[Rfam]
Nucleotides: 082
Base pairs, nucleotide, nucleotide: 004035005034006033007032008031009030010029011028012027013026014025049071050070051069052068053067055065056064
Number, partner (000 for none) and nucleotide at each position: 001000u002000u003000u004035u005034g006033c007032u008031g009030c010029g011028g012027g013026c014025g015000g016000g017000c018000u019000c020000a021000g022000u023000g024000a025014u026013g027012c028011c029010c030009g031008c032007g033006g034005c035004a036000u037000c038000g039000a040000u041000u042000c043000a044000a045000c046000a047000a048000u049071g050070u051069g052068u053067c054000a055065c056064g057000g058000g059000a060000a061000g062000a063000a064056c065055g066000c067053g068052g069051c070050a071049c072000u073000u074000c075000g076000g077000g078000g079000c080000g081000u082000u